mir-2774 microRNA precursor family: a 68-nucleotide sequence from Bombyx mori. The match comes from Rfam's covariance-model search (70 bits). The literature on the family includes a 2010 paper in BMC Genomics by Liu et al., "MicroRNAs of Bombyx mori identified by Solexa sequencing".
RNA sequence: ACAGCAUUUGGACCGUCAGUCUACCGAGCAAUAUCACCUGCUCGGUGGAAGAUCUUUUCAUUCGUUGU
Numbered sequence: 001a002c003a004g005c006a007u008u009u010g011g012a013c014c015g016u017c018a019g020u021c022u023a024c025c026g027a028g029c030a031a032u033a034u035c036a037c038c039u040g041c042u043c044g045g046u047g048g049a050a051g052a053u054c055u056u057u058u059c060a061u062u063c064g065u066u067g068u
Base pairs, nucleotide, nucleotide: 004065005064010059011058012057015053016052017051020049021048022047023046024045025044026043027042028041029040